[Rfam]
RNA: TPP riboswitch aptamer (THI element)
Organism: Gemella sp. GH3
RNA sequence: AUUAAUAAUUACGGGAGUCUGUGAACAGUCUGAGAGGAAACUUUUUUGUUUCGACCGAACCUGAUCUAGGUAAUGCUAGCGUAGGUAUAUAGGAAUCAAUAGAC
Numbered sequence: 001a002u003u004a005a006u007a008a009u010u011a012c013g014g015g016a017g018u019c020u021g022u023g024a025a026c027a028g029u030c031u032g033a034g035a036g037g038a039a040a041c042u043u044u045u046u047u048g049u050u051u052c053g054a055c056c057g058a059a060c061c062u063g064a065u066c067u068a069g070g071u072a073a074u075g076c077u078a079g080c081g082u083a084g085g086u087a088u089a090u091a092g093g094a095a096u097c098a099a100u101a102g103a104c
Base pairs, nucleotide, nucleotide: 006092008090009089012053013052014051017030019028020027021026037047038046039045040044060085061084062083063082066079067078068077069076